[Rfam]
RNA sequence: UCACCCGCGCGUGACUGGCGUAGCAUGGGCCACCAUGGGGGAGCGCGCGGACAUACUGUGCCGUACGCCUGGGCAGAGGUA
Numbered sequence: 001u002c003a004c005c006c007g008c009g010c011g012u013g014a015c016u017g018g019c020g021u022a023g024c025a026u027g028g029g030c031c032a033c034c035a036u037g038g039g040g041g042a043g044c045g046c047g048c049g050g051a052c053a054u055a056c057u058g059u060g061c062c063g064u065a066c067g068c069c070u071g072g073g074c075a076g077a078g079g080u081a
Stems, first nucleotide, its partner, number of pairs: 005050008015040002017069005025036004059075004